[Rfam]
RNA sequence: CCCGCCACUAUGCCUGUCUAAUGGUGACUGAGUAUGAUCCAGUGGAGGCUCAGAUUGACCCAGCUUUAGGAAACAGGGCUGCUCAAACUAAUGGACAAUGACUCUGUGCCGAAAGUUUGGAACAUAA
Numbered sequence: 001c002c003c004g005c006c007a008c009u010a011u012g013c014c015u016g017u018c019u020a021a022u023g024g025u026g027a028c029u030g031a032g033u034a035u036g037a038u039c040c041a042g043u044g045g046a047g048g049c050u051c052a053g054a055u056u057g058a059c060c061c062a063g064c065u066u067u068a069g070g071a072a073a074c075a076g077g078g079c080u081g082c083u084c085a086a087a088c089u090a091a092u093g094g095a096c097a098a099u100g101a102c103u104c105u106g107u108g109c110c111g112a113a114a115g116u117u118u119g120g121a122a123c124a125u126a127a
Base pairs, nucleotide, nucleotide: 005045006044007043008042009041018032019031021029022027060120061119062118063117065115066114067113069110070109074106075105076104077103078102083094084093
Small nucleolar RNA SNORA65: a 127-nucleotide RNA sequence from Betta splendens. Lineage of the source: Eukaryota > Eumetazoa > Teleostei > Clupeocephala > Betta. U65 belongs to the H/ACA class of snoRNAs which are thought to guide the sites of modification of uridines to pseudouridines. Pairs were carried over by alignment from the consensus structure, which was predicted with RNAalifold. The literature on the family includes a 2001 paper in EMBO J by Huttenhofer et al., "RNomics: an experimental approach that identifies 201 candidates for novel, small, non-messenger RNAs in mouse".